[Rfam]
RNA: Small nucleolar RNA psi18S-841/snoR66
RNA sequence: GGCAAGCGCACUCUGUGUCAUAUUGAUAGACAGCCUCAUGUGAUGACAAUUUGAAAGCUUGCAAGAGUAAAACGGUGCUUCGCUUAUCCAUGUGGCAGCGAUUUUUCAACAGCUGCCGCAUUGAAUUCGGGCUCCACACUAA
Numbered sequence: 001g002g003c004a005a006g007c008g009c010a011c012u013c014u015g016u017g018u019c020a021u022a023u024u025g026a027u028a029g030a031c032a033g034c035c036u037c038a039u040g041u042g043a044u045g046a047c048a049a050u051u052u053g054a055a056a057g058c059u060u061g062c063a064a065g066a067g068u069a070a071a072a073c074g075g076u077g078c079u080u081c082g083c084u085u086a087u088c089c090a091u092g093u094g095g096c097a098g099c100g101a102u103u104u105u106u107c108a109a110c111a112g113c114u115g116c117c118g119c120a121u122u123g124a125a126u127u128c129g130g131g132c133u134c135c136a137c138a139c140u141a142a
Stems, first nucleotide, its partner, number of pairs: 002062006011053001014048003017044007025037002068141002074134002077132003081129002087124002090121008099112001